[Rfam]
RNA sequence: UUUGUUCUGUGAUGAGACCAUGGAAUUAGCACUGGGCACAGUGCCUUGAUAACACUGAAGAAUAAUUCCAUGCUGCCUUCCUUCUGAGAACAAG
Numbered sequence: 001u002u003u004g005u006u007c008u009g010u011g012a013u014g015a016g017a018c019c020a021u022g023g024a025a026u027u028a029g030c031a032c033u034g035g036g037c038a039c040a041g042u043g044c045c046u047u048g049a050u051a052a053c054a055c056u057g058a059a060g061a062a063u064a065a066u067u068c069c070a071u072g073c074u075g076c077c078u079u080c081c082u083u084c085u086g087a088g089a090a091c092a093a094g
Stems, first nucleotide, its partner, number of pairs: 001094005
The family of this 94-nucleotide RNA from Eleutherodactylus coqui is "Small nucleolar RNA U83B". A search with the family's covariance model found it, with a score of 96 bits. Gene Ontology terms of the family: RNA processing and nucleolus. From the family's description: U83B belongs to the C/D family of snoRNAs. NCBI's taxonomy places the organism under Eukaryota, Bilateria, Anura, Neobatrachia, Eleutherodactylus.